[Rfam]
RNA sequence: CACCGACAUCAGCGAUUCAUUUUGCGAACCCUGGCCCACCGCCAGAUAGGCGUUCAUGCCCAGUUCUUUCAUCUGCUGCUCGCCGAUAACCCGGGUGGUGGUGGUUUUGCCGAACCGAUCCGCCAAUUGGCGGGCUUGGGAAGCCAGAUAAGCCGGGUUGCAGAUAUUGGGGGGCAUAUUCCCCAGAUCUUUGGC
Numbered sequence: 001c002a003c004c005g006a007c008a009u010c011a012g013c014g015a016u017u018c019a020u021u022u023u024g025c026g027a028a029c030c031c032u033g034g035c036c037c038a039c040c041g042c043c044a045g046a047u048a049g050g051c052g053u054u055c056a057u058g059c060c061c062a063g064u065u066c067u068u069u070c071a072u073c074u075g076c077u078g079c080u081c082g083c084c085g086a087u088a089a090c091c092c093g094g095g096u097g098g099u100g101g102u103g104g105u106u107u108u109g110c111c112g113a114a115c116c117g118a119u120c121c122g123c124c125a126a127u128u129g130g131c132g133g134g135c136u137u138g139g140g141a142a143g144c145c146a147g148a149u150a151a152g153c154c155g156g157g158u159u160g161c162a163g164a165u166a167u168u169g170g171g172g173g174g175c176a177u178a179u180u181c182c183c184c185a186g187a188u189c190u191u192u193g194g195c
Base pairs, nucleotide, nucleotide: 005189006188012032014030016028017027018026020024033043034042035041050059051058062077063076064075078135079134080133081132082131083130084129085128086127087126092122093121094120095119096118099112100111101110102109103108136163137162138161140159141158144155167186168185169184170183171182172181
The record is a 195-nucleotide RNA from Sodalis ligni, which matches "Yersinia sRNA 276" in Rfam. By type it is an antisense RNA. NCBI's taxonomy places the organism under Bacteria, Gammaproteobacteria, Enterobacterales, Bruguierivoracaceae, Sodalis. The base pairs follow the family's consensus structure, which was predicted with RNAfold.